[Rfam]
The record is a 164-nucleotide sequence, which matches "c-di-AMP riboswitch aptamer (ydaO/yuaA leader)" in Rfam. The pairing is the family consensus, mapped onto this sequence. Rfam describes the family as follows. This family represents a conserved RNA structure found upstream of the ydaO and yuaA genes in Bacillus subtilis and related genes in other bacteria.
RNA sequence: CGUGCGCACGCGCCUAAUCCCGCAAGGGAGCCGGGGAACCACCAACAUGGGGUGAAUCGAGCCCCUGCGCAUCCGUGCAUUCGUGCACCUGUGCCAGGUGUUCGUAGGAGACCUUCCUGCUCCGAACCCGUCAGCUAACCCGGUAGGCGAGAAGGAAGGAAAGG
Numbered sequence: 001c002g003u004g005c006g007c008a009c010g011c012g013c014c015u016a017a018u019c020c021c022g023c024a025a026g027g028g029a030g031c032c033g034g035g036g037a038a039c040c041a042c043c044a045a046c047a048u049g050g051g052g053u054g055a056a057u058c059g060a061g062c063c064c065c066u067g068c069g070c071a072u073c074c075g076u077g078c079a080u081u082c083g084u085g086c087a088c089c090u091g092u093g094c095c096a097g098g099u100g101u102u103c104g105u106a107g108g109a110g111a112c113c114u115u116c117c118u119g120c121u122c123c124g125a126a127c128c129c130g131u132c133a134g135c136u137a138a139c140c141c142g143g144u145a146g147g148c149g150a151g152a153a154g155g156a157a158g159g160a161a162a163g164g
Base pairs, nucleotide, nucleotide: 011149012148013147014146018029019028020027030144031143032142033141034140035139040049041048050129051128052127058104059103060102061101107123108122109121110120